[Rfam]
RNA sequence: ACCACCAGCGAGGGGUGCCGCGAGCGAGGAUGGACCAGUUCCAUUCUUCGACCGGCUGAGAUCAUACCCUAAGAACCUGAUCCGGGUCAUACCGGCGGAGGGACUGCUGUGUUGACGUUUC
Numbered sequence: 001a002c003c004a005c006c007a008g009c010g011a012g013g014g015g016u017g018c019c020g021c022g023a024g025c026g027a028g029g030a031u032g033g034a035c036c037a038g039u040u041c042c043a044u045u046c047u048u049c050g051a052c053c054g055g056c057u058g059a060g061a062u063c064a065u066a067c068c069c070u071a072a073g074a075a076c077c078u079g080a081u082c083c084g085g086g087u088c089a090u091a092c093c094g095g096c097g098g099a100g101g102g103a104c105u106g107c108u109g110u111g112u113u114g115a116c117g118u119u120u121c
Stems, first nucleotide, its partner, number of pairs: 006109005011070004016064001017056004076101003082095004

A member of the RNA family "TPP riboswitch aptamer (THI element)", 121 nucleotides long. The family's consensus secondary structure is taken from published work.